Rfam assigns this 134-nucleotide RNA sequence from Ferroacidibacillus organovorans to the family "c-di-AMP riboswitch aptamer (ydaO/yuaA leader)". Rfam describes the family as follows. This family represents a conserved RNA structure found upstream of the ydaO and yuaA genes in Bacillus subtilis and related genes in other bacteria. The ydaO/yuaA element is thought to act as a genetic 'off' switch for the ydaO and yuaA genes in its native state. It is believed that the element may be triggered during osmotic shock leading to activation of ydaO, a predicted amino acid transporter gene, and members of the yuaA-yubG operon which code for KtrA and KtrB K+ transporters.

RNA sequence: CUAAGCCUGUCGCUGAGUCGCCGUGAACUGGUGAACGGGGGAACCAAUUUUUGGGGCUAAUCCUGAACUUCAGGUAGGGGUACUGUUCUCUCCGAGCCCGUCAGCUAACCUCGUAAGCGUUGGACAUGAUUUCA
Numbered sequence: 001c002u003a004a005g006c007c008u009g010u011c012g013c014u015g016a017g018u019c020g021c022c023g024u025g026a027a028c029u030g031g032u033g034a035a036c037g038g039g040g041g042a043a044c045c046a047a048u049u050u051u052u053g054g055g056g057c058u059a060a061u062c063c064u065g066a067a068c069u070u071c072a073g074g075u076a077g078g079g080g081u082a083c084u085g086u087u088c089u090c091u092c093c094g095a096g097c098c099c100g101u102c103a104g105c106u107a108a109c110c111u112c113g114u115a116a117g118c119g120u121u122g123g124a125c126a127u128g129a130u131u132u133c134a
Base pairs, nucleotide, nucleotide: 011119012118013117014116018034019033020032021031022030023029035114036113037112038111039110040109045053046052054099055098056097062074063073064072065071077093078092079091080090